About this RNA:
Shown here is a 102-nucleotide RNA sequence from Bacillus sp. 165, a member of the family "Purine riboswitch aptamer". From the family's description: Riboswitches are metabolite binding domains within certain messenger RNAs that serve as precision sensors for their corresponding targets. The match comes from Rfam's covariance-model search (80 bits).
[Rfam]
RNA sequence: UAAUUAUAAUAUUUCUGACAUCGUAUAAUUUUGGGAAUAGGGCCCAAGAGUUUCUACCUAGCUACCGUAAAUAGCAUGGCUACGAGGUUUGGAAAGAGUAUA
Numbered sequence: 001u002a003a004u005u006a007u008a009a010u011a012u013u014u015c016u017g018a019c020a021u022c023g024u025a026u027a028a029u030u031u032u033g034g035g036a037a038u039a040g041g042g043c044c045c046a047a048g049a050g051u052u053u054c055u056a057c058c059u060a061g062c063u064a065c066c067g068u069a070a071a072u073a074g075c076a077u078g079g080c081u082a083c084g085a086g087g088u089u090u091g092g093a094a095a096g097a098g099u100a101u102a
Stems, first nucleotide, its partner, number of pairs: 018088002021085005029049007058078001061075004